[Rfam]
RNA sequence: GUGGGCUGGGGAAGGGCUGCUGGGUGGUGGGGCCAGCAGGCCCAGCCUCGUCCCAGCCAGUCUGACCCGUGCCCGAGAUCAGCUCCCAGGUGGGCUCCGUGCUCACCUGUGCAGUAACAGGUGUGAGCAUUCAUGAAGCAUUCUGAUGGUCAUGUAUGAUACUGCAUACAACA
Numbered sequence: 001g002u003g004g005g006c007u008g009g010g011g012a013a014g015g016g017c018u019g020c021u022g023g024g025u026g027g028u029g030g031g032g033c034c035a036g037c038a039g040g041c042c043c044a045g046c047c048u049c050g051u052c053c054c055a056g057c058c059a060g061u062c063u064g065a066c067c068c069g070u071g072c073c074c075g076a077g078a079u080c081a082g083c084u085c086c087c088a089g090g091u092g093g094g095c096u097c098c099g100u101g102c103u104c105a106c107c108u109g110u111g112c113a114g115u116a117a118c119a120g121g122u123g124u125g126a127g128c129a130u131u132c133a134u135g136a137a138g139c140a141u142u143c144u145g146a147u148g149g150u151c152a153u154g155u156a157u158g159a160u161a162c163u164g165c166a167u168a169c170a171a172c173a
Stems, first nucleotide, its partner, number of pairs: 003074004008068003015062004019057004024053001026047003030043001032041003087101002089098002108168009118158002124152003128148004135142002
Shown here is a 173-nucleotide sequence from Tachuris rubrigastra, a member of the family "Small Cajal body specific RNA 16". The source organism's lineage runs through Eukaryota, Archosauria, Aves, Passeriformes and Tachuris. A search with the family's covariance model found it, with a score of 116 bits. By type it is a small Cajal body RNA. About the family: scaRNAs are a specific class of small nuclear RNAs which localise to the Cajal bodies and guide the modification of RNA polymerase II transcribed spliceosomal RNAs U1, U2, U4, U5 and U12.